[Rfam]
RNA sequence: AGAUGAGAGAAACACCCCGCUCACGGAUGACUGUGAGCGACCCCAGGCAAGGGCCUCCCCAGCUCGCGCCUGGUCGUGCCUUCGCGCACACCACCGGACCUUCGGGCUCCGGAUCUCCUCACCGAUCGGA
Numbered sequence: 001a002g003a004u005g006a007g008a009g010a011a012a013c014a015c016c017c018c019g020c021u022c023a024c025g026g027a028u029g030a031c032u033g034u035g036a037g038c039g040a041c042c043c044c045a046g047g048c049a050a051g052g053g054c055c056u057c058c059c060c061a062g063c064u065c066g067c068g069c070c071u072g073g074u075c076g077u078g079c080c081u082u083c084g085c086g087c088a089c090a091c092c093a094c095c096g097g098a099c100c101u102u103c104g105g106g107c108u109c110c111g112g113a114u115c116u117c118c119u120c121a122c123c124g125a126u127c128g129g130a
Stems, first nucleotide, its partner, number of pairs: 004121004009117002018039009043073005051065004076089004094112005099106002122129002
RNA: Streptomyces RNA 5676